The record is a 127-nucleotide RNA from Arabidopsis lyrata, which matches "MIR3440 microRNA precursor family" in Rfam. The sequence is in the family's curated seed alignment. Taxonomically the source falls in Arabidopsis (Eukaryota, Euphyllophyta, Spermatophyta, Pentapetalae).
RNA sequence: UGCGGCAUUUUCCACAAGUGUGGUUUCCCUGGCCAAUCCACUUGUAAUGUGUAUUUUGUAAAUAACGCAAAAUGUGCAUUAGAAGUGGAUUGGUCAAGAGAACCGCACUUGUGCAAAAUACCGCAGU
Numbered sequence: 001u002g003c004g005g006c007a008u009u010u011u012c013c014a015c016a017a018g019u020g021u022g023g024u025u026u027c028c029c030u031g032g033c034c035a036a037u038c039c040a041c042u043u044g045u046a047a048u049g050u051g052u053a054u055u056u057u058g059u060a061a062a063u064a065a066c067g068c069a070a071a072a073u074g075u076g077c078a079u080u081a082g083a084a085g086u087g088g089a090u091u092g093g094u095c096a097a098g099a100g101a102a103c104c105g106c107a108c109u110u111g112u113g114c115a116a117a118a119u120a121c122c123g124c125a126g127u
Stems, first nucleotide, its partner, number of pairs: 001125005007119005013113014028098001030096014045081015